[Rfam]
Guanidine-II riboswitch aptamer (mini-ykkC): a 45-nucleotide RNA sequence from Zizania palustris. Pairs were carried over by alignment from the consensus structure, which is taken from published work.
RNA sequence: GCUGGAGGACGGCCUCCGGCAUCCUUCCGCUGGAGGACGGCCUCC
Numbered sequence: 001g002c003u004g005g006a007g008g009a010c011g012g013c014c015u016c017c018g019g020c021a022u023c024c025u026u027c028c029g030c031u032g033g034a035g036g037a038c039g040g041c042c043u044c045c
Stems, first nucleotide, its partner, number of pairs: 001020008032045005